Overview
The record is a 110-nucleotide sequence from Thalassobacillus cyri, which matches "SAM riboswitch aptamer (S box leader)" in Rfam. Its family is annotated with regulation of gene expression in the Gene Ontology. A search with the family's covariance model found it, with a score of 80 bits. The family's consensus secondary structure is taken from published work. The organism belongs to Thalassobacillus, within Bacteria.
Nucleotides: 110
Stems, first nucleotide, its partner, number of pairs: 001110007013043005021032002026080004044072004049068002051065004076102001081099006
Number, partner (000 for none) and nucleotide at each position: 001110u002109u003108c004107u005106u006105a007104u008000g009000a010000a011000g012000a013043g014042a015041a016040g017039c018000u019000g020000a021032g022031g023000g024000a025000a026080c027079u028078g029077g030000a031022c032021c033000g034000a035000c036000g037000a038000a039017g040016c041015u042014u043013c044072a045071g046070c047069a048000a049068c050067c051065u052064g053063c054062c055000g056000a057000a058000u059000u060000a061000c062054g063053g064052u065051g066000a067050g068049g069047u070046g071045c072044u073000a074000c075000a076102u077029c078028c079027a080026g081099c082098g083097a084096a085095c086094g087000g088000c089000u090000a091000a092000g093000c094086c095085g096084u097083u098082u099081g100000a101000a102076a103000a104007a105006u106005a107004a108003g109002a110001a